[Rfam]
RNA sequence: GUGUACGCGUGGUACAUGCCGAUCCGAGCACCGGCCGCGCCCGCCUGACAGCUGCUCGCUACGUUUUGUUAACU
Numbered sequence: 001g002u003g004u005a006c007g008c009g010u011g012g013u014a015c016a017u018g019c020c021g022a023u024c025c026g027a028g029c030a031c032c033g034g035c036c037g038c039g040c041c042c043g044c045c046u047g048a049c050a051g052c053u054g055c056u057c058g059c060u061a062c063g064u065u066u067u068g069u070u071a072a073c074u
Base pairs, nucleotide, nucleotide: 002016003015004014005013006012020033021032023030046071047070048069049068050067051066